[Rfam]
RNA: Alphaproteobacterial sRNA ar9
Organism: Neorhizobium alkalisoli
RNA sequence: ACAAAAGAGGCAAGGAGUUCAAAUUCUUGCCAAUUCGCGGUCAAGUCUUGGGAGGAUCAGAUCUUAGGCGCGCUCAGUCGCUGCCCCGGCAACGGUUAAGGAUCACGCGAAACUGAAAAACAAGGCUUAACCGCCUUGUUUUUUUUU
Numbered sequence: 001a002c003a004a005a006a007g008a009g010g011c012a013a014g015g016a017g018u019u020c021a022a023a024u025u026c027u028u029g030c031c032a033a034u035u036c037g038c039g040g041u042c043a044a045g046u047c048u049u050g051g052g053a054g055g056a057u058c059a060g061a062u063c064u065u066a067g068g069c070g071c072g073c074u075c076a077g078u079c080g081c082u083g084c085c086c087c088g089g090c091a092a093c094g095g096u097u098a099a100g101g102a103u104c105a106c107g108c109g110a111a112a113c114u115g116a117a118a119a120a121c122a123a124g125g126c127u128u129a130a131c132c133g134c135c136u137u138g139u140u141u142u143u144u145u146u147u
Stems, first nucleotide, its partner, number of pairs: 003147004011029006036109004045057004060104005067085003070081003086095003119140008